[Rfam]
RNA sequence: CCCGGCCCUUACGGGACCGGGCUACUUCCUGUCGGCCCUCCGGGCCU
Numbered sequence: 001c002c003c004g005g006c007c008c009u010u011a012c013g014g015g016a017c018c019g020g021g022c023u024a025c026u027u028c029c030u031g032u033c034g035g036c037c038c039u040c041c042g043g044g045c046c047u
Stems, first nucleotide, its partner, number of pairs: 001021005006015003034046005
Acido-Lenti-1 RNA: a 47-nucleotide RNA from a Pirellulaceae bacterium. It scores 41 bits against the family's covariance model. The source organism's lineage runs through Bacteria, Pseudomonadati, Planctomycetia, Pirellulales and Pirellulaceae.